The record is a 197-nucleotide RNA sequence from Streptomyces cacaoi, which matches "Actinobacteria sRNA Ms_IGR-5" in Rfam.
The match comes from Rfam's covariance-model search (75 bits).
A reference for the family is Li et al. (2013), "Identification of small RNAs in Mycobacterium smegmatis using heterologous Hfq", RNA.

[Rfam]
RNA sequence: ACACAGGAAAGGAGGUGAUCCGGCUGAUGAUCAAUCACCGGACGUGUGAGGUGGCUGCGGCCUGAGGGCCUGCGCCACACCGUGACGCCGGUUCGCCGGCCAAUCCACAGCAGUCACCCGGCCCGUGGGCUCGUCGGACUCGUCCGACCGACGCCGUCCGCCGCUCGGCGGAGGGAGUCGCCCACGGGCCGUCUGCG
Numbered sequence: 001a002c003a004c005a006g007g008a009a010a011g012g013a014g015g016u017g018a019u020c021c022g023g024c025u026g027a028u029g030a031u032c033a034a035u036c037a038c039c040g041g042a043c044g045u046g047u048g049a050g051g052u053g054g055c056u057g058c059g060g061c062c063u064g065a066g067g068g069c070c071u072g073c074g075c076c077a078c079a080c081c082g083u084g085a086c087g088c089c090g091g092u093u094c095g096c097c098g099g100c101c102a103a104u105c106c107a108c109a110g111c112a113g114u115c116a117c118c119c120g121g122c123c124c125g126u127g128g129g130c131u132c133g134u135c136g137g138a139c140u141c142g143u144c145c146g147a148c149c150g151a152c153g154c155c156g157u158c159c160g161c162c163g164c165u166c167g168g169c170g171g172a173g174g175g176a177g178u179c180g181c182c183c184a185c186g187g188g189c190c191g192u193c194u195g196c197g
Base pairs, nucleotide, nucleotide: 015058016057017056019054059101060100061099062098064096067093068092069091070090072088073087074086119191120190121189122188123187124186125185126184127183128182129181130180133152134151135150136149137148